[Rfam]
RNA sequence: GAAAACCUAUUGAUGUUCUCAGGGCCUUGAAUAAGACCCUCAAAGGCAAAUUUUGAGAACUCUUACACUGAGUAAGAGUU
Numbered sequence: 001g002a003a004a005a006c007c008u009a010u011u012g013a014u015g016u017u018c019u020c021a022g023g024g025c026c027u028u029g030a031a032u033a034a035g036a037c038c039c040u041c042a043a044a045g046g047c048a049a050a051u052u053u054u055g056a057g058a059a060c061u062c063u064u065a066c067a068c069u070g071a072g073u074a075a076g077a078g079u080u
Stems, first nucleotide, its partner, number of pairs: 022039003026035003059079008
SmY spliceosomal RNA: an 80-nucleotide RNA from Caenorhabditis auriculariae.
Rfam classes the family as a spliceosomal small nuclear RNA.
The source organism's lineage runs through Eukaryota, Opisthokonta, Eumetazoa, Nematoda and Caenorhabditis.